[Rfam]
RNA sequence: UGGAGGACUGAGAAGGUAAGACAGUUAAACUUUAUGCUGUAUCUUACUGGUUAUAGCCUCCAAAACUAUAAUAGUGCAAUAGCAAUUCAUGUUUCCUCUCCUGACAUGAGGGAAAGCAGUACUGCAUUUG
Number, nucleotide and partner (000 for none) at each position: 001u000002g061003g060004a059005g058006g057007a000008c000009u000010g000011a000012g000013a000014a000015g048016g047017u046018a045019a042020g000021a040022c039023a038024g037025u036026u000027a000028a000029a000030c000031u000032u000033u000034a000035u000036g025037c024038u023039g022040u021041a000042u019043c000044u000045u018046a017047c016048u015049g000050g000051u000052u000053a000054u000055a000056g000057c006058c005059u004060c003061c002062a000063a000064a000065a000066c000067u000068a000069u000070a000071a000072u000073a000074g000075u000076g000077c000078a000079a000080u000081a123082g122083c000084a000085a120086u119087u118088c000089a000090u000091g000092u000093u114094u113095c112096c111097u110098c000099u109100c108101c000102u000103g000104a000105c000106a000107u000108g100109a099110g097111g096112g095113a094114a093115a000116g000117c000118a087119g086120u085121a000122c082123u081124g000125c000126a000127u000128u000129u000130g000
A member of the RNA family "Small nucleolar RNA SNORA47" from Chlamydotis macqueenii, 130 nucleotides long.
The literature on the family includes a 2001 paper in EMBO J by Huttenhofer et al., "RNomics: an experimental approach that identifies 201 candidates for novel, small, non-messenger RNAs in mouse".
Pairs were carried over by alignment from the consensus structure, which was predicted with WAR.